[Rfam]
RNA sequence: AAGAUACGUGUUUGUGGUUGAAAGUCGAUGCCAGUCGCAGGCAAAGCGAUCCACGUAAGGAAUUUUAGAAAAUUCUGAUCAUAGUGCGGCCUAGAAGUAAGUCCUGCCGUAUAAAACGAGAGAGUGAGUAGUGGGGGAUGAACAUCUAAGAGCGAAAGUUCCAGCAGGCGAGUGUGGGGGUAAAGACCAGGUCAAGCGUAUUGG
Numbered sequence: 001a002a003g004a005u006a007c008g009u010g011u012u013u014g015u016g017g018u019u020g021a022a023a024g025u026c027g028a029u030g031c032c033a034g035u036c037g038c039a040g041g042c043a044a045a046g047c048g049a050u051c052c053a054c055g056u057a058a059g060g061a062a063u064u065u066u067a068g069a070a071a072a073u074u075c076u077g078a079u080c081a082u083a084g085u086g087c088g089g090c091c092u093a094g095a096a097g098u099a100a101g102u103c104c105u106g107c108c109g110u111a112u113a114a115a116a117c118g119a120g121a122g123a124g125u126g127a128g129u130a131g132u133g134g135g136g137g138a139u140g141a142a143c144a145u146c147u148a149a150g151a152g153c154g155a156a157a158g159u160u161c162c163a164g165c166a167g168g169c170g171a172g173u174g175u176g177g178g179g180g181u182a183a184a185g186a187c188c189a190g191g192u193c194a195a196g197c198g199u200a201u202u203g204g
Stems, first nucleotide, its partner, number of pairs: 003202007012195003015189005028175003031041001034090006050084001055079001058076004063071002082182001103168005108118003122161004131153002137146003
raiA RNA: a 204-nucleotide RNA from Megasphaera sp. UPII 135-E. The family's RNA type in Rfam is riboswitch. The family's consensus secondary structure is taken from published work.